The record is a 141-nucleotide RNA sequence from Jaculus jaculus, which matches "Small nucleolar RNA SNORA29" in Rfam. The literature on the family includes a 2001 paper in EMBO J by Huttenhofer et al., "RNomics: an experimental approach that identifies 201 candidates for novel, small, non-messenger RNAs in mouse". Its Rfam clan is "SNORA20 clan". The family's consensus secondary structure was predicted with PFOLD. Rfam's curators write: ACA29 is a member of the H/ACA class of snoRNA that guide the sites of modification of uridines to pseudouridines. By type it is an H/ACA-box small nucleolar RNA.
[Rfam]
RNA sequence: UUUCCCAUUUUACUACCACAUGUUCUCUUAAUAGUAGAAUUGAGUGGCUAUGCUGGUGGGAUAGAUUAAAGGUGCCAUGAUCUGAAGAGGUACGGGUUUUCCAGUGACCUCCCCGUAUAUGAAUUGGCUAAGCAGAAAAAU
Numbered sequence: 001u002u003u004c005c006c007a008u009u010u011u012a013c014u015a016c017c018a019c020a021u022g023u024u025c026u027c028u029u030a031a032u033a034g035u036a037g038a039a040u041u042g043a044g045u046g047g048c049u050a051u052g053c054u055g056g057u058g059g060g061a062u063a064g065a066u067u068a069a070a071g072g073u074g075c076c077a078u079g080a081u082c083u084g085a086a087g088a089g090g091u092a093c094g095g096g097u098u099u100u101c102c103a104g105u106g107a108c109c110u111c112c113c114c115g116u117a118u119a120u121g122a123a124u125u126g127g128c129u130a131a132g133c134a135g136a137a138a139a140a141u
Stems, first nucleotide, its partner, number of pairs: 004060004016047004074128004092116004